[Rfam]
RNA: SAM riboswitch aptamer (S box leader)
Organism: Paraliobacillus quinghaiensis
RNA sequence: UUCUUAUCAAGAGAGACGGAGGGGUUGGCCCUGUGAAGUCUCAGCAACCAGUCUAAUUCAUUAGGCCCGGUGCUAAUUCCAAAUAGACUAUUUUUAGUCUAGAAGAUAAGGA
Dot-bracket structure: ((((((((....(((((...(((.[[[[)))......)))))((((.((.((((........))))..))))))...(]].]]((((((......))))))..)))))))))